[Rfam]
Shown here is a 201-nucleotide sequence from Frisingicoccus caecimuris, a member of the family "Group II catalytic intron D1-D4-5".
Rfam 15.1 lists 720 matches to the family in 418 species.
The organism belongs to Frisingicoccus, within Bacteria.
Group II introns are found in rRNA, tRNA and mRNA of organelles in fungi, plants and protists, and also in mRNA in bacteria.
It scores 176 bits against the family's covariance model.
RNA sequence: AACAACUGAUAAUUCGAAAGGUAGAAUGAUGGGGUAACGCCUUGAAAUGCCUUCUCUGAUACUUCGACCGGCUCCGACUGUAAUGGUUGGGGUCUGGAGCUCGAUAAAGUCGGCGGAAGUCUGCCGAAACAGUGUAGAAAUACAGCUGUCGAAAGUGCGGUAGAGGUACUGUAUGCAGAUGACACGUCGGGAGUCUAUAAA
Numbered sequence: 001a002a003c004a005a006c007u008g009a010u011a012a013u014u015c016g017a018a019a020g021g022u023a024g025a026a027u028g029a030u031g032g033g034g035u036a037a038c039g040c041c042u043u044g045a046a047a048u049g050c051c052u053u054c055u056c057u058g059a060u061a062c063u064u065c066g067a068c069c070g071g072c073u074c075c076g077a078c079u080g081u082a083a084u085g086g087u088u089g090g091g092g093u094c095u096g097g098a099g100c101u102c103g104a105u106a107a108a109g110u111c112g113g114c115g116g117a118a119g120u121c122u123g124c125c126g127a128a129a130c131a132g133u134g135u136a137g138a139a140a141u142a143c144a145g146c147u148g149u150c151g152a153a154a155g156u157g158c159g160g161u162a163g164a165g166g167u168a169c170u171g172u173a174u175g176c177a178g179a180u181g182a183c184a185c186g187u188c189g190g191g192a193g194u195c196u197a198u199a200a201a
Base pairs, nucleotide, nucleotide: 018053019052020051021050022049023048031043032042033041034040054193055192056191057190064104065103066102067101068096070094071093072092073091074090075089076088077087078086079085080084111189112188113187114186115185119180120179121178122177123176124175125151126150127149131147132146155174156173157172158171159170160169161168162167
Gene Ontology term of the family: Group II intron splicing.